[Rfam]
RNA: SAH (S-adenosyl-L-homocysteine) riboswitch aptamer
Organism: Oceanospirillum linum
RNA sequence: GAUACUGAGGGGCGCUGCAACGGAGCCUUCUCCGCUACGCUCAGUCUCGUGCCAACUUUAAUUGCAAGGGCGCCCAUUCAUC
Numbered sequence: 001g002a003u004a005c006u007g008a009g010g011g012g013c014g015c016u017g018c019a020a021c022g023g024a025g026c027c028u029u030c031u032c033c034g035c036u037a038c039g040c041u042c043a044g045u046c047u048c049g050u051g052c053c054a055a056c057u058u059u060a061a062u063u064g065c066a067a068g069g070g071c072g073c074c075c076a077u078u079c080a081u082c
Stems, first nucleotide, its partner, number of pairs: 002047001004045005021034005